RNA sequence: AGUAGAACGAUGAUAAGGACGUUGCAAAGAAUUUUGUGAGCAGAGAAUGAACCCUGGGCUGAAAGGUUCAUACAAAGCUUUGCAUGGAUCACCUUGGAGUUGAAGCUCUGAAAAAUGUAAGAGCUUUCGUAAGCCGGCGAUAACGGCAUUGAGAGACAGUUUUUGAACUGUAAUCAGGGUGGUACCGCGAUUGACAAUCGUCCCUGGG
Dot-bracket structure: ......((......((((....(((((.......(((.........((((((.............))))))))).....))))).......))))...))..(((((((..........))))))).(((......)))................((((((....))))))....((((.......(((((.....)))))))))...
Numbered sequence: 001a002g003u004a005g006a007a008c009g010a011u012g013a014u015a016a017g018g019a020c021g022u023u024g025c026a027a028a029g030a031a032u033u034u035u036g037u038g039a040g041c042a043g044a045g046a047a048u049g050a051a052c053c054c055u056g057g058g059c060u061g062a063a064a065g066g067u068u069c070a071u072a073c074a075a076a077g078c079u080u081u082g083c084a085u086g087g088a089u090c091a092c093c094u095u096g097g098a099g100u101u102g103a104a105g106c107u108c109u110g111a112a113a114a115a116u117g118u119a120a121g122a123g124c125u126u127u128c129g130u131a132a133g134c135c136g137g138c139g140a141u142a143a144c145g146g147c148a149u150u151g152a153g154a155g156a157c158a159g160u161u162u163u164u165g166a167a168c169u170g171u172a173a174u175c176a177g178g179g180u181g182g183u184a185c186c187g188c189g190a191u192u193g194a195c196a197a198u199c200g201u202c203c204c205u206g207g208g
Stems, first nucleotide, its partner, number of pairs: 007100002015095004023084005035074003047071006103126007128139003156171006176205004187201005

Record summary:
This 208-nucleotide RNA from Tindallia californiensis belongs to the Rfam family "T-box leader". From the family's description: Uncharged tRNA acts as the effector for transcription antitermination of genes in the T-box leader family.